[Rfam]
The record is a 131-nucleotide RNA from Myotis myotis, which matches "Small nucleolar RNA SNORA42/SNORA80 family" in Rfam.

Nucleotides: 131
Stems, first nucleotide, its partner, number of pairs: 001057002004054001005052004015047001018044003022040003025036002070124002072120002079114002084109002086105006
Number, partner (000 for none) and nucleotide at each position: 001057g002056c003000g004054u005052g006051g007050g008049u009000u010000u011000g012000g013000a014000u015047u016000g017000a018044u019043g020042g021000c022040a023039g024038g025036c026035c027000u028000g029000u030000c031000c032000c033000c034000u035026g036025g037000g038024u039023c040022u041000c042020u043019c044018a045000g046000a047015g048000u049008g050007c051006c052005c053000c054004a055000g056002g057001c058000c059000a060000g061000a062000g063000c064000a065000a066000g067000c068000u069000g070124c071123g072120c073119u074000u075000g076000a077000a078000c079114c080113a081000c082000u083000g084109c085108c086105c087104g088103g089102c090101c091100u092000g093000u094000g095000c096000c097000u098000g099000u100091a101090g102089g103088c104087u105086g106000c107000a108085g109084g110000c111000a112000c113080u114079g115000a116000a117000g118000c119073a120072g121000g122000u123071u124070g125000c126000a127000c128000a129000g130000u131000g
The match comes from Rfam's covariance-model search (106 bits). The members of this family belong to the H/ACA class of snoRNAs that guide the sites of modification of uridines to pseudouridines. By type it is an H/ACA-box small nucleolar RNA.